Shown here is a 114-nucleotide RNA from Japonolirion osense, a member of the family "Plastid-psbA-1 3UTR RNA".
[Rfam]
RNA sequence: GUUGAAGCUCCAUCUACAAAUGGAUAAGACUUCUGUCUUAGUGUAAUAUGAAUCGUUGAAGGAGCAAUACCAAACCUCUUGUUCUAGCAAGAGGUUUGGUAUUGCUCCCUUGUU
Numbered sequence: 001g002u003u004g005a006a007g008c009u010c011c012a013u014c015u016a017c018a019a020a021u022g023g024a025u026a027a028g029a030c031u032u033c034u035g036u037c038u039u040a041g042u043g044u045a046a047u048a049u050g051a052a053u054c055g056u057u058g059a060a061g062g063a064g065c066a067a068u069a070c071c072a073a074a075c076c077u078c079u080u081g082u083u084c085u086a087g088c089a090a091g092a093g094g095u096u097u098g099g100u101a102u103u104g105c106u107c108c109c110u111u112g113u114u
Base pairs, nucleotide, nucleotide: 009024010023011022012021013020061108062107063106064105065104066103067102068101069100070099072097073096074095076093077092078091079090080089
A reference for the family is Richter et al. (2023), "Retrograde signaling in plants: A critical review focusing on the GUN pathway and beyond", Plant Commun. Plastid psbA-1 is a non-coding RNA (ncRNA) present in plastids. It was identified in inverted repeat sequences in the 3 prime untranslate region (3UTR) of photosystem II quinone-binding protein (psbA). The source organism's lineage runs through Eukaryota, Viridiplantae, Streptophyta, Magnoliopsida and Japonolirion.